[Rfam]
RNA sequence: UUGGCAGGUCUCCUUAUCGCUCCGGCCCUCGGGUCGGGGAGGAAAGUCCGGACACCAUAGUGCGGCAUAGCGGGUAACACCCGUCGUCCCGAACUCGCUUCGGGAUAGGACCAGUGCAACAGAAAGCAAGUACAGUUCGGCUGUAGUGAAAUCAGGUAAACUCUAUGCGGUGAAACGUCAUGUAAAUCGGUGUUUAAGGGCGGCACGUCCGAACCGAAGGGUAGACGGUUCGAGCUUUUGGGCGACCAAAAGCCUAGAUAAAUGAUAAGGGUCGACCUCCUUGGGGUCGAAACAGAAUCCGGCUUAUGACCUGCUUUUAUU
Numbered sequence: 001u002u003g004g005c006a007g008g009u010c011u012c013c014u015u016a017u018c019g020c021u022c023c024g025g026c027c028c029u030c031g032g033g034u035c036g037g038g039g040a041g042g043a044a045a046g047u048c049c050g051g052a053c054a055c056c057a058u059a060g061u062g063c064g065g066c067a068u069a070g071c072g073g074g075u076a077a078c079a080c081c082c083g084u085c086g087u088c089c090c091g092a093a094c095u096c097g098c099u100u101c102g103g104g105a106u107a108g109g110a111c112c113a114g115u116g117c118a119a120c121a122g123a124a125a126g127c128a129a130g131u132a133c134a135g136u137u138c139g140g141c142u143g144u145a146g147u148g149a150a151a152u153c154a155g156g157u158a159a160a161c162u163c164u165a166u167g168c169g170g171u172g173a174a175a176c177g178u179c180a181u182g183u184a185a186a187u188c189g190g191u192g193u194u195u196a197a198g199g200g201c202g203g204c205a206c207g208u209c210c211g212a213a214c215c216g217a218a219g220g221g222u223a224g225a226c227g228g229u230u231c232g233a234g235c236u237u238u239u240g241g242g243c244g245a246c247c248a249a250a251a252g253c254c255u256a257g258a259u260a261a262a263u264g265a266u267a268a269g270g271g272u273c274g275a276c277c278u279c280c281u282u283g284g285g286g287u288c289g290a291a292a293c294a295g296a297a298u299c300c301g302g303c304u305u306a307u308g309a310c311c312u313g314c315u316u317u318u319a320u321u
Base pairs, nucleotide, nucleotide: 003315004314005313006312007311008310009309010308012270013269014268015267016266017265018264020039021038022037023036024035025034026033027032044305045304046303048302049301050300051299052298053172054171055170056169060206061205062204063203065168066167067166068165069164070084071083072082073081074080085108086106087105088104089103090102091101092100093099109163110162114161115160116157117156131145132144133143134142135141136140176227177226178225179224187217188216189215190214191213198210199209200208201207234253235252236251237250238249239248240247241246
Dot-bracket structure: ..((((((((.(((((((.((((((((....))))))))....[[[.[[[[[((((...[[[[.((((((((((.....)))))(((((((((.....)))))))).)((...((((.............((((((...))))))..........))..)))))))))))))...((((.......(((((......((((.]]]]))))..)))))......))))......((((((((....))))))))..........)))))))...........................]]]]]]]]..))))))))......

This 321-nucleotide RNA from Pelagihabitans pacificus belongs to the Rfam family "Bacterial RNase P class A". Clan: RNaseP clan. By type it is a ribozyme. A search with the family's covariance model found it, with a score of 186 bits. Lineage of the source: Bacteria > Pseudomonadati > Bacteroidota > Flavobacteriales > Pelagihabitans.